Notes:
glmS glucosamine-6-phosphate activated ribozyme aptamer: a 190-nucleotide sequence from Sulfobacillus thermosulfidooxidans.
RNA sequence: AGGGCCCAAGUAGCGCCGGAACCUUUCGUUCGAGAAUGAAAAGAAAGCCAAGAAUAUGGGUUUGAGACGAAAGGUUGACGAGGUGAGGGAUCUCGAAGUCUUCGGCGGGUGACCUCCGGCUUCCCGACAGUCGUCAAAUCACGAACAAAGGUCGUUUGUAAAGACGACACAAAAACGUGUAGUUGGGACC
Number, nucleotide and partner (000 for none) at each position: 001a000002g000003g000004g000005c000006c000007c000008a000009a000010g000011u000012a000013g000014c000015g000016c000017c000018g000019g000020a076021a075022c074023c073024u072025u071026u070027c069028g000029u067030u000031c000032g000033a000034g000035a000036a000037u000038g000039a000040a000041a000042a000043g000044a000045a000046a000047g000048c000049c000050a000051a000052g000053a000054a000055u000056a000057u000058g000059g000060g000061u000062u000063u000064g000065a000066g000067a029068c000069g027070a026071a025072a024073g023074g022075u021076u020077g000078a000079c000080g000081a000082g000083g000084u000085g116086a115087g114088g113089g000090a000091u000092c000093u105094c104095g103096a102097a000098g000099u000100c000101u000102u096103c095104g094105g093106c000107g000108g000109g000110u000111g000112a000113c088114c087115u086116c085117c133118g132119g131120c130121u129122u000123c000124c000125c000126g000127a000128c000129a121130g120131u119132c118133g117134u000135c000136a000137a000138a000139u000140c179141a178142c177143g176144a000145a000146c000147a000148a000149a000150g000151g168152u167153c166154g165155u164156u163157u162158g000159u000160a000161a000162a157163g156164a155165c154166g153167a152168c151169a000170c000171a000172a000173a000174a000175a000176c143177g142178u141179g140180u000181a000182g000183u000184u000185g000186g000187g000188a000189c000190c000